[Rfam]
Shown here is a 73-nucleotide sequence from Molossus molossus, a member of the family "mir-134 microRNA precursor family". The match comes from Rfam's covariance-model search (81 bits). Pairs were carried over by alignment from the consensus structure, which was predicted with RNAalifold. For this family Rfam cites "Human embryonic stem cells express a unique set of microRNAs" (Suh et al., Dev Biol, 2004). Gene Ontology terms of the family: miRNA-mediated post-transcriptional gene silencing and RISC complex.
RNA sequence: CGGGGUGUGUGACUGGUUGACCAGUGGGGCAAGCACUGUGUUCACCCUGUGGGCGGCCUGGUCACCCACCCUC
Numbered sequence: 001c002g003g004g005g006u007g008u009g010u011g012a013c014u015g016g017u018u019g020a021c022c023a024g025u026g027g028g029g030c031a032a033g034c035a036c037u038g039u040g041u042u043c044a045c046c047c048u049g050u051g052g053g054c055g056g057c058c059u060g061g062u063c064a065c066c067c068a069c070c071c072u073c
Stems, first nucleotide, its partner, number of pairs: 002072005009065008018056001021052003026047003033041002
Dot-bracket structure: .(((((..((((((((.(..(((..(((....((.....))...)))..)))...).))))))))..))))).